[Rfam]
RNA sequence: ACUAACUUCAUAGGAUUCACUCAUAUAAUAGCGAGAAUAUGGCUCGCAAGUUUCUACCGAAUUACCGUAAAUGAUUCGACUAUGAGUGAGCAAUGGGAUUGC
Dot-bracket structure: .................((((((((...(.(((((.......))))).)........(((((((.......)))))))..))))))))..............

Overview
This 102-nucleotide RNA sequence from Bacillus sp. Y1 belongs to the Rfam family "Purine riboswitch aptamer". Its family is annotated with purine nucleobase biosynthetic process in the Gene Ontology. The match comes from Rfam's covariance-model search (90 bits). The family's consensus secondary structure is taken from published work. Taxonomically the source falls in Bacillus (Bacteria, Bacillati, Bacilli, Bacillaceae).